Shown here is a 130-nucleotide RNA from Grallaria varia, a member of the family "Small nucleolar RNA SNORA13". Rfam classes the family as an H/ACA-box small nucleolar RNA. From the family's description: ACA13 is a member of the H/ACA class of snoRNA that guide the sites of modification of uridines to pseudouridines. The family is grouped with related families in Rfam's "SNORA13 clan". A search with the family's covariance model found it, with a score of 82 bits. The base pairs follow the family's consensus structure, which was predicted with CMfinder.
[Rfam]
RNA sequence: GGCCUUUGUGUUGCCCAUUCAUUCCUGCCCAGAAUGAAUGUGGUGUCAAAAAAGGCAAAUAGAAAUUCUUGCUCAAACUCUUUUAAGGAGCCGUUUAUUUAACUUUCUCCCUGUUUUUGCAAGGACUAAA
Numbered sequence: 001g002g003c004c005u006u007u008g009u010g011u012u013g014c015c016c017a018u019u020c021a022u023u024c025c026u027g028c029c030c031a032g033a034a035u036g037a038a039u040g041u042g043g044u045g046u047c048a049a050a051a052a053a054g055g056c057a058a059a060u061a062g063a064a065a066u067u068c069u070u071g072c073u074c075a076a077a078c079u080c081u082u083u084u085a086a087g088g089a090g091c092c093g094u095u096u097a098u099u100u101a102a103c104u105u106u107c108u109c110c111c112u113g114u115u116u117u118u119g120c121a122a123g124g125a126c127u128a129a130a
Base pairs, nucleotide, nucleotide: 002056003055004054005053006052007051009048010047012045013044014043015042016040017039018038019037020036021035022034023033068123069122070121071120074119075118076117077116086112087111088110089108090107093103094102